[Rfam]
RNA sequence: CGUGUGGCUAACGCCACACGCUAAUAUCUAUCGGUGCUCUGCACCU
Numbered sequence: 001c002g003u004g005u006g007g008c009u010a011a012c013g014c015c016a017c018a019c020g021c022u023a024a025u026a027u028c029u030a031u032c033g034g035u036g037c038u039c040u041g042c043a044c045c046u
Base pairs, nucleotide, nucleotide: 001020002019003018004017005016006015007014008013033045034044035043036042037041
A member of the RNA family "Acido-Lenti-1 RNA" from Lentisphaera araneosa, 46 nucleotides long. Rfam 15.1 lists 2,607 matches to the family in 171 species. It is one of the family's seed sequences. The source organism's lineage runs through Bacteria, Lentisphaerota, Lentisphaeraceae, Lentisphaera and Lentisphaera araneosa. Pairs were carried over by alignment from the consensus structure, which is taken from published work. Rfam classes the family as a small RNA.